[Rfam]
Nucleotides: 275
Stems, first nucleotide, its partner, number of pairs: 001275003005271006024113006044093006053066004069082004121246005131234002136230006142214004150208004159187003163184004189203005
Number, partner (000 for none) and nucleotide at each position: 001275a002274g003273g004000a005271c006270a007269a008268c009267a010266g011000a012000a013000a014000g015000c016000a017000g018000g019000a020000a021000a022000g023000a024113a025112c026111g027110g028109g029108u030000g031000a032000a033000g034000c035000g036000a037000u038000a039000g040000g041000g042000c043000u044093a045092c046091a047090c048089g049088c050000a051000a052000g053066u054065g055064a056063c057000a058000u059000g060000g061000u062000g063056g064055u065054c066053a067000g068000g069082c070081u071080g072079c073000c074000g075000g076000a077000u078000a079072g080071c081070a082069g083000a084000u085000a086000g087000a088049g089048c090047g091046u092045g093044u094000g095000a096000a097000g098000a099000a100000u101000a102000a103000a104000c105000a106000u107000g108029a109028c110027c111026c112025g113024u114000c115000a116000a117000a118000g119000u120000a121246g122245u123244u124243g125242a126000a127000g128000a129000a130000a131234a132233c133000a134000g135000g136230a137229a138228c139227g140226g141225u142214a143213g144212g145211g146000c147000a148000a149000g150208a151207a152206a153205g154000c155000a156000c157000a158000g159187u160186g161185u162000a163184c164183c165182g166181c167000a168000c169000u170000a171000u172000u173000u174000g175000a176000a177000g178000a179000a180000a181166g182165c183164g184163g185161a186160c187159a188000g189203g190202c191201u192200g193199a194000a195000c196000c197000a198000a199193u200192c201191a202190g203189c204000a205153c206152u207151u208150u209000a210000c211145c212144c213143c214142u215000a216000u217000u218000c219000c220000a221000a222000g223000a224000a225141a226140c227139c228138g229137u230136u231000a232000a233132g234131u235000g236000g237000a238000a239000g240000a241000a242125u243124c244123a245122a246121c247000c248000g249000a250000g251000c252000g253000a254000g255000a256000g257000g258000a259000c260000a261000c262000a263000g264000c265000a266010c267009u268008g269007u270006u271005g272000c273003c274002c275001u
This 275-nucleotide RNA belongs to the Rfam family "RAGATH-8 RNA". The family's RNA type in Rfam is small RNA. The base pairs follow the family's consensus structure, which is taken from published work. The literature on the family includes a 2015 paper in Nat Chem Biol by Weinberg et al., "New classes of self-cleaving ribozymes revealed by comparative genomics analysis".